Rfam assigns this 75-nucleotide sequence from Streptomyces boncukensis to the family "ASpks TB sRNA".
[Rfam]
RNA sequence: CUUCAACGAGCCGAUCCACACCGGGUUCCCGGCGUCGCUCCGCUGCCCGUAGGUCGCCAGCAGCGCCUGCGCCUC
Numbered sequence: 001c002u003u004c005a006a007c008g009a010g011c012c013g014a015u016c017c018a019c020a021c022c023g024g025g026u027u028c029c030c031g032g033c034g035u036c037g038c039u040c041c042g043c044u045g046c047c048c049g050u051a052g053g054u055c056g057c058c059a060g061c062a063g064c065g066c067c068u069g070c071g072c073c074u075c
Stems, first nucleotide, its partner, number of pairs: 014026004032070002038065001043060003047056001049054001
It is annotated as an antisense RNA.